[Rfam]
RNA sequence: UGAGAGUUCAAAGCCAUAGCAGAAGCACUCACAGUGUGGCCAUGUCAGAUUCAAAUGAAUUUGUGAAUUCUGCU
Numbered sequence: 001u002g003a004g005a006g007u008u009c010a011a012a013g014c015c016a017u018a019g020c021a022g023a024a025g026c027a028c029u030c031a032c033a034g035u036g037u038g039g040c041c042a043u044g045u046c047a048g049a050u051u052c053a054a055a056u057g058a059a060u061u062u063g064u065g066a067a068u069u070c071u072g073c074u
Base pairs, nucleotide, nucleotide: 013040014039015038018074019073020072021071022070023069024068025037026036027035046063047062048061049060050059051058052057
The family of this 74-nucleotide RNA sequence from Crocodylus porosus is "Mammalian CPEB3 ribozyme". A search with the family's covariance model found it, with a score of 53 bits. The source organism's lineage runs through Eukaryota, Metazoa, Bilateria, Amniota and Crocodylus. The base pairs follow the family's consensus structure, which is taken from published work.